[Rfam]
Nucleotides: 142
Stems, first nucleotide, its partner, number of pairs: 001142004045102007
Number, partner (000 for none) and nucleotide at each position: 001142g002141c003140u004139c005000u006000g007000u008000g009000a010000u011000g012000g013000a014000g015000c016000c017000c018000a019000u020000g021000c022000g023000u024000g025000u026000c027000a028000u029000c030000u031000g032000a033000g034000c035000c036000u037000c038000u039000g040000g041000c042000u043000u044000c045102c046101c047100u048099g049098c050097c051096a052000g053000u054000g055000c056000a057000g058000c059000c060000c061000u062000g063000g064000c065000a066000g067000u068000g069000u070000c071000c072000u073000a074000c075000u076000u077000c078000c079000c080000a081000g082000g083000g084000c085000u086000g087000u088000u089000g090000u091000c092000u093000g094000c095000c096051u097050g098049g099048c100047g101046g102045g103000a104000a105000g106000g107000u108000c109000c110000u111000g112000g113000g114000c115000a116000a117000a118000g119000g120000a121000u122000c123000a124000g125000u126000c127000u128000u129000u130000g131000u132000a133000c134000u135000c136000u137000g138000a139004g140003a141002g142001c

A member of the RNA family "Small nucleolar RNA SNORD10", 142 nucleotides long. Its family is annotated with nucleolus and RNA processing in the Gene Ontology. Pairs were carried over by alignment from the consensus structure, which was predicted with WAR. On this family, see Huttenhofer et al., EMBO J 2001: "RNomics: an experimental approach that identifies 201 candidates for novel, small, non-messenger RNAs in mouse". By type it is a C/D-box small nucleolar RNA.